[Rfam]
RNA sequence: CAAAUUCACCAGGGGUGCUUUGUUCCUCAAAGCUGAGAAACACCCUUAGAACCUGCACUGGGUAAUGCCUGCGGAGGGAGAGUGAGCUUGAUUAGCC
Dot-bracket structure: .....((((.((((.((((((.......)))))......)..)))).....(((...(.((......)).)...)))....))))............
The family of this 97-nucleotide RNA from Legionella nautarum is "TPP riboswitch aptamer (THI element)". Rfam describes the family as follows. Vitamin B(1) in its active form thiamin pyrophosphate (TPP) is an essential coenzyme that is synthesised by coupling of pyrimidine and thiazole moieties in bacteria. Lineage of the source: Bacteria > Pseudomonadota > Legionellales > Legionellaceae > Legionella. It scores 65 bits against the family's covariance model.